skipping-rope RNA: a 96-nucleotide sequence. The base pairs follow the family's consensus structure, which is taken from published work. The sequence is in the family's curated seed alignment.

[Rfam]
RNA sequence: AUUAUUUGAGGUGGUAAAUUUCGUCCGAACCACACGCCGAUGGUAUGACAGGGGAAACCCGAGAGAUGCAGGAGAAUCGGACGCCUGCCAAAUAAU
Numbered sequence: 001a002u003u004a005u006u007u008g009a010g011g012u013g014g015u016a017a018a019u020u021u022c023g024u025c026c027g028a029a030c031c032a033c034a035c036g037c038c039g040a041u042g043g044u045a046u047g048a049c050a051g052g053g054g055a056a057a058c059c060c061g062a063g064a065g066a067u068g069c070a071g072g073a074g075a076a077u078c079g080g081a082c083g084c085c086u087g088c089c090a091a092a093u094a095a096u
Stems, first nucleotide, its partner, number of pairs: 001096008011033005023082005035063001037054002068088005

Rfam classes the family as a small RNA.